[Rfam]
RNA sequence: ACUGUGGAGUGUACUUAGGAUCUGUGAGUAGAGAUAACGCAGGUUACUCAAAAACAUACACGAAGAAACAGUAA
Dot-bracket structure: (((((...(((((.........(((.....(((.((((....)))))))....))))))))......)))))..
RNA: RAGATH-18 RNA